[Rfam]
RNA sequence: CUGUUAAGUAAUGACGUGACAAAUAGAGUGUCAUGUCAUCACGUCUAAUCAGUGACACCUCAUUGUCAUGCCAUCACCUUUGUUGACGUGACAAUAAUGGAGUGUGAUGACAUGACACUCUAUUUGUCACGUCAUCACUUAACGAAA
Number, nucleotide and partner (000 for none) at each position: 001c000002u144003g143004u142005u141006a140007a139008g138009u137010a000011a135012u134013g133014a132015c131016g130017u129018g128019a127020c126021a125022a124023a123024u122025a121026g120027a119028g118029u117030g116031u115032c114033a113034u112035g111036u110037c109038a108039u107040c106041a105042c104043g103044u102045c000046u100047a000048a098049u097050c000051a095052g000053u000054g092055a000056c090057a089058c088059c000060u000061c000062a000063u000064u000065g000066u000067c000068a000069u000070g084071c000072c082073a081074u000075c000076a000077c000078c000079u000080u000081u073082g072083u000084u070085g000086a000087c000088g058089u057090g056091a000092c054093a000094a000095u051096a000097a049098u048099g000100g046101a000102g044103u043104g042105u041106g040107a039108u038109g037110a036111c035112a034113u033114g032115a031116c030117a029118c028119u027120c026121u025122a024123u023124u022125u021126g020127u019128c018129a017130c016131g015132u014133c013134a012135u011136c000137a009138c008139u007140u006141a005142a004143c003144g002145a000146a000147a000

A member of the RNA family "MIR4371 microRNA precursor family" from Glycine max, 147 nucleotides long. The match comes from Rfam's covariance-model search (118 bits). Its family is annotated with miRNA-mediated post-transcriptional gene silencing and RISC complex in the Gene Ontology.